The family of this 78-nucleotide RNA from Schistosoma bovis is "mir-3492 microRNA precursor family". Gene Ontology terms of the family: miRNA-mediated post-transcriptional gene silencing and RISC complex. A search with the family's covariance model found it, with a score of 45 bits.

[Rfam]
RNA sequence: AGCUUUUAGGAUCCAUGCUGAAAUCUCGCCAGACAAAAACCCAUUAGGGCUGGUCAGACUUCCAAGAUAACUGAAGUU
Numbered sequence: 001a002g003c004u005u006u007u008a009g010g011a012u013c014c015a016u017g018c019u020g021a022a023a024u025c026u027c028g029c030c031a032g033a034c035a036a037a038a039a040c041c042c043a044u045u046a047g048g049g050c051u052g053g054u055c056a057g058a059c060u061u062c063c064a065a066g067a068u069a070a071c072u073g074a075a076g077u078u
Base pairs, nucleotide, nucleotide: 002077003076004075005074006073011068012067013066016064017063020062021061022060024058025057026056028054029053030052